[Rfam]
This 316-nucleotide RNA from Ignisphaera aggregans belongs to the Rfam family "Archaeal RNase P".
RNA sequence: UCUGGCCCGCAAAUCGCUACGCACCCAUAGUGUGAGGAAACACCGUCCUCCGUACGAAGCCGAAGCCCCGCAAGGGGCCGGGGUAAUACCCCGGGCACUGGCACAGAAACGACAUGUCCAUAGGCCGAUGAAGAUGAUUCAGAGAGGCUCCUCAGGCAACUGGGGAGCAGGUAACCUGAUGAUGAGGCUUAUGGGAGCAGUGAAACGGCCAGCCUUCGGGGAGCAAGGCUCCGAUCCCCGAUGAGUUUUCGUACAAGGGGUGGGAGCCGCUUAGCCAAAUGCGAUUAAUACAGAAGACGGGUUAUUGCGGGCCAGA
Numbered sequence: 001u002c003u004g005g006c007c008c009g010c011a012a013a014u015c016g017c018u019a020c021g022c023a024c025c026c027a028u029a030g031u032g033u034g035a036g037g038a039a040a041c042a043c044c045g046u047c048c049u050c051c052g053u054a055c056g057a058a059g060c061c062g063a064a065g066c067c068c069c070g071c072a073a074g075g076g077g078c079c080g081g082g083g084u085a086a087u088a089c090c091c092c093g094g095g096c097a098c099u100g101g102c103a104c105a106g107a108a109a110c111g112a113c114a115u116g117u118c119c120a121u122a123g124g125c126c127g128a129u130g131a132a133g134a135u136g137a138u139u140c141a142g143a144g145a146g147g148c149u150c151c152u153c154a155g156g157c158a159a160c161u162g163g164g165g166a167g168c169a170g171g172u173a174a175c176c177u178g179a180u181g182a183u184g185a186g187g188c189u190u191a192u193g194g195g196a197g198c199a200g201u202g203a204a205a206c207g208g209c210c211a212g213c214c215u216u217c218g219g220g221g222a223g224c225a226a227g228g229c230u231c232c233g234a235u236c237c238c239c240g241a242u243g244a245g246u247u248u249u250c251g252u253a254c255a256a257g258g259g260g261u262g263g264g265a266g267c268c269g270c271u272u273a274g275c276c277a278a279a280u281g282c283g284a285u286u287a288a289u290a291c292a293g294a295a296g297a298c299g300g301g302u303u304a305u306u307g308c309g310g311g312c313c314a315g316a
Base pairs, nucleotide, nucleotide: 001316002315003314005312006311007310008309009308010307011306012286013285014284015283016282017281020034021033022032023031024030039303040302041301043300044299045298046297047296048223049222050221051220053253054252055251056250057249058248060219061218062217063216064215065078066077067076068075069074079093080092081091082090083089094214095213099211100210101209102208115199116198117197118194119193120192121191122190123189124188125187139179140178141177142176227268228267229266230265234261235260236259237258238257
Overview: Gene Ontology terms of the family: tRNA processing, ribonuclease P activity and multimeric ribonuclease P complex. The literature on the family includes a 1998 paper in Annu Rev Biochem by Frank and Pace, "Ribonuclease P: unity and diversity in a tRNA processing ribozyme". It is annotated as a ribozyme.